Nucleotides: 164
Stems, first nucleotide, its partner, number of pairs: 012122004016048006023042005049090003056083003060079004092117003095113003099109002137163005143158001146155003
Number, partner (000 for none) and nucleotide at each position: 001000a002000u003000a004000c005000u006000u007000a008000c009000c010000u011000g012122g013121u014120a015119g016048g017047g018046g019045a020044g021043a022000u023042a024041c025040c026039a027038u028000g029000a030000u031000u032000a033000u034000g035000a036000a037000g038027g039026u040025g041024g042023u043021u044020u045019u046018c047017c048016c049090a050089g051088g052000a053000c054000a055000a056083a057082g058081c059000u060079u061078a062077u063076c064000c065000a066000u067000u068000g069000c070000a071000c072000u073000c074000u075000a076063g077062a078061u079060g080000u081058g082057c083056u084000g085000a086000c087000c088051c089050c090049u091000g092117u093116g094115a095113u096112u097111u098000c099109c100108c101000c102000c103000a104000a105000u106000g107000u108100g109099g110000g111097a112096a113095a114000c115094u116093c117092a118000a119015c120014u121013g122012c123000a124000u125000a126000a127000u128000u129000u130000g131000u132000g133000g134000u135000a136000g137163u138162g139161g140160g141159g142000g143158a144000c145000u146155g147154u148153g149000u150000u151000a152000g153148c154147a155146c156000u157000c158143u159141c160140c161139c162138u163137g164000a
Source information:
Shown here is a 164-nucleotide RNA from Castor canadensis, a member of the family "U1 spliceosomal RNA". U1 is a small nuclear RNA (snRNA) component of the spliceosome (involved in pre-mRNA splicing). Clan: U1 clan. Pairs were carried over by alignment from the consensus structure, which is taken from published work.